[Rfam]
RNA sequence: CCUGUGAGUGUGCCGGCUUACAGAACAUGCCUUGAGUAAACGCCUAGUUAUUUUAGGCAAUUCCAGCUAGGGCUUGGCAACCCGACCUUAAUGAGAAUGAAAGCAAGUGAAGUUGACCGUGCAUGUAAGGUUGAUGUGAUUGUGAGUAGCGUUUGGCCCCGCGGAGAGGGCU
Number, nucleotide and partner (000 for none) at each position: 001c000002c023003u022004g021005u020006g019007a018008g017009u000010g000011u000012g078013c077014c076015g075016g000017c008018u007019u006020a005021c004022a003023g002024a000025a000026c125027a124028u123029g122030c121031c000032u000033u000034g000035a000036g000037u000038a000039a000040a000041c000042g000043c000044c000045u000046a000047g000048u000049u000050a000051u000052u000053u000054u000055a000056g000057g000058c000059a000060a000061u000062u000063c000064c000065a088066g087067c000068u085069a000070g083071g082072g081073c000074u079075u015076g014077g013078c012079a074080a000081c072082c071083c070084g000085a068086c000087c066088u065089u000090a000091a000092u000093g000094a000095g000096a000097a152098u151099g150100a000101a000102a000103g143104c142105a141106a140107g000108u138109g000110a137111a000112g135113u134114u133115g132116a131117c130118c129119g000120u127121g030122c029123a028124u027125g026126u000127a120128a000129g118130g117131u116132u115133g114134a113135u112136g000137u110138g108139a000140u106141u105142g104143u103144g000145a000146g000147u000148a000149g000150c099151g098152u097153u000154u000155g172156g171157c170158c169159c168160c000161g000162c000163g000164g000165a000166g000167a000168g159169g158170g157171c156172u155